A member of the RNA family "Bacterial RNase P class A" from Ornithinimicrobium pratense, 386 nucleotides long.

RNA sequence: UGAGUCGGCCAGGCGGCCGCGUCGGGCCCCGUGAGGGUGUCCCGCCGAGGAACGUCCGGGCUCCACAGGGCAUGGUGGUGGUUAACAGCCACCCGGGGUGACCCGCGGGAAAGUGCCACAGAAAGUAGACCGCCCACCGGUUCGCCGGUGGGUCAGGGUGAAAGGGUGGUGUAAGAGACCACCAGCACGCCGGGUGACCGGCGUGGAUCGGUAAACCCCGCCAGGAGCAAGACCAGACAGUGCGCGCCCGAGGGCUGCCCGCCCAAGCGCACGGGUAGGUCGCUGGAGGUAUGCGGCAACGUAUACCCGAGAUGGAUGGUCGCCACCUUCGCAGUGCCGGUGACGGCGCGGAGGGACAGAACCCGGCGUACCGGCCGACUCAUCCA
Numbered sequence: 001u002g003a004g005u006c007g008g009c010c011a012g013g014c015g016g017c018c019g020c021g022u023c024g025g026g027c028c029c030c031g032u033g034a035g036g037g038u039g040u041c042c043c044g045c046c047g048a049g050g051a052a053c054g055u056c057c058g059g060g061c062u063c064c065a066c067a068g069g070g071c072a073u074g075g076u077g078g079u080g081g082u083u084a085a086c087a088g089c090c091a092c093c094c095g096g097g098g099u100g101a102c103c104c105g106c107g108g109g110a111a112a113g114u115g116c117c118a119c120a121g122a123a124a125g126u127a128g129a130c131c132g133c134c135c136a137c138c139g140g141u142u143c144g145c146c147g148g149u150g151g152g153u154c155a156g157g158g159u160g161a162a163a164g165g166g167u168g169g170u171g172u173a174a175g176a177g178a179c180c181a182c183c184a185g186c187a188c189g190c191c192g193g194g195u196g197a198c199c200g201g202c203g204u205g206g207a208u209c210g211g212u213a214a215a216c217c218c219c220g221c222c223a224g225g226a227g228c229a230a231g232a233c234c235a236g237a238c239a240g241u242g243c244g245c246g247c248c249c250g251a252g253g254g255c256u257g258c259c260c261g262c263c264c265a266a267g268c269g270c271a272c273g274g275g276u277a278g279g280u281c282g283c284u285g286g287a288g289g290u291a292u293g294c295g296g297c298a299a300c301g302u303a304u305a306c307c308c309g310a311g312a313u314g315g316a317u318g319g320u321c322g323c324c325a326c327c328u329u330c331g332c333a334g335u336g337c338c339g340g341u342g343a344c345g346g347c348g349c350g351g352a353g354g355g356a357c358a359g360a361a362c363c364c365g366g367c368g369u370a371c372c373g374g375c376c377g378a379c380u381c382a383u384c385c386a
Stems, first nucleotide, its partner, number of pairs: 001382010012324007020047002023044004028039001052369003056366005061227004068260004073223005078092005093107001094105004108218002113216002115212003130157002132153009165183006186205008231281004240272006252264004288307008
The family is grouped with related families in Rfam's "RNaseP clan".
The organism belongs to Ornithinimicrobium, within Bacteria.
The family's RNA type in Rfam is ribozyme.
It scores 296 bits against the family's covariance model.